[Rfam]
RNA: Small nucleolar RNA SNORA72
Organism: Ursus americanus
RNA sequence: UGGGGAAUAGUCUUGCUGUUCUGAUUCUGUGAUAAUCAGGACAGGCUAAACACAUGCUAUGUUAAGACCAUGCAUGUGUCCCCAGACCUGGGUCUGCUUUGAUCAGUGCUGGUGACAGAC
Numbered sequence: 001u002g003g004g005g006a007a008u009a010g011u012c013u014u015g016c017u018g019u020u021c022u023g024a025u026u027c028u029g030u031g032a033u034a035a036u037c038a039g040g041a042c043a044g045g046c047u048a049a050a051c052a053c054a055u056g057c058u059a060u061g062u063u064a065a066g067a068c069c070a071u072g073c074a075u076g077u078g079u080c081c082c083c084a085g086a087c088c089u090g091g092g093u094c095u096g097c098u099u100u101g102a103u104c105a106g107u108g109c110u111g112g113u114g115a116c117a118g119a120c
Base pairs, nucleotide, nucleotide: 003057005055016044017043018042019041020040021039022038023037024036025035026034067113068112069111070110072109073108083096084095085094086093087092
Dot-bracket structure: ..(.(..........(((((((((((.......)))))))))))..........).).........((((.((.........(((((....)))))...........)))))).......